Source information:
Rfam assigns this 78-nucleotide RNA sequence from Prolemur simus to the family "Small nucleolar RNA SNORD74". The base pairs follow the family's consensus structure, which was predicted with PFOLD. By type it is a C/D-box small nucleolar RNA. The match comes from Rfam's covariance-model search (46 bits). The organism belongs to Prolemur, within Eukaryota.
[Rfam]
RNA sequence: UUAUUAAGAGGGCCUCUGAUGAAACCUAUGUUGGUAGUGACAUGUUAAUGAGAAUACCAACUGCUCUGAUGAAAAAAA
Numbered sequence: 001u002u003a004u005u006a007a008g009a010g011g012g013c014c015u016c017u018g019a020u021g022a023a024a025c026c027u028a029u030g031u032u033g034g035u036a037g038u039g040a041c042a043u044g045u046u047a048a049u050g051a052g053a054a055u056a057c058c059a060a061c062u063g064c065u066c067u068g069a070u071g072a073a074a075a076a077a078a
Stems, first nucleotide, its partner, number of pairs: 001078002004075002